[Rfam]
RNA sequence: UGGACAGAUUAUUGUAUUCGAUUGUAUUCGACUAUAUUCAUGACGUGAAAUAGGGGAUUGCAGUAUUUUUAAACGAAAAAUGAAUCAAUUAACAUAAUAGACUCCU
Numbered sequence: 001u002g003g004a005c006a007g008a009u010u011a012u013u014g015u016a017u018u019c020g021a022u023u024g025u026a027u028u029c030g031a032c033u034a035u036a037u038u039c040a041u042g043a044c045g046u047g048a049a050a051u052a053g054g055g056g057a058u059u060g061c062a063g064u065a066u067u068u069u070u071a072a073a074c075g076a077a078a079a080a081u082g083a084a085u086c087a088a089u090u091a092a093c094a095u096a097a098u099a100g101a102c103u104c105c106u
Stems, first nucleotide, its partner, number of pairs: 002105003009100007017092002020090002023087002036085006044075003047069006
Rfam assigns this 106-nucleotide RNA sequence from Nicotiana sylvestris to the family "MIR6152 microRNA precursor family". Its family is annotated with miRNA-mediated post-transcriptional gene silencing and RISC complex in the Gene Ontology. The match comes from Rfam's covariance-model search (75 bits). The organism belongs to Nicotiana, within Eukaryota.